[Rfam]
RNA sequence: CCUCUCUUCAGCUCCACUGGAGCACACAGGUCCAGUGUGUUUUUAGGUAUUUUUAGGGAGAGAGAGGAAGGCCCUCCUAAUGCACGACAGACCCGCCCCAAAGUGGCUUUCCUGUUCCUAGGAGUGUGACAGCU
Numbered sequence: 001c002c003u004c005u006c007u008u009c010a011g012c013u014c015c016a017c018u019g020g021a022g023c024a025c026a027c028a029g030g031u032c033c034a035g036u037g038u039g040u041u042u043u044u045a046g047g048u049a050u051u052u053u054u055a056g057g058g059a060g061a062g063a064g065a066g067g068a069a070g071g072c073c074c075u076c077c078u079a080a081u082g083c084a085c086g087a088c089a090g091a092c093c094c095g096c097c098c099c100a101a102a103g104u105g106g107c108u109u110u111c112c113u114g115u116u117c118c119u120a121g122g123a124g125u126g127u128g129a130c131a132g133c134u
Stems, first nucleotide, its partner, number of pairs: 002066006009060001012058003016054001021043002024040004074124005080119001082117001089113002095107003

Rfam assigns this 134-nucleotide RNA sequence from Nannospalax galili to the family "Small nucleolar RNA SNORA64/SNORA10 family". On this family, see Narayanan et al., EMBO J 1999: "Nucleolar localization signals of box H/ACA small nucleolar RNAs". Lineage of the source: Eukaryota > Bilateria > Myomorpha > Spalacidae > Nannospalax. Rfam 15.1 lists 703 matches to the family in 311 species. The family's RNA type in Rfam is H/ACA-box small nucleolar RNA.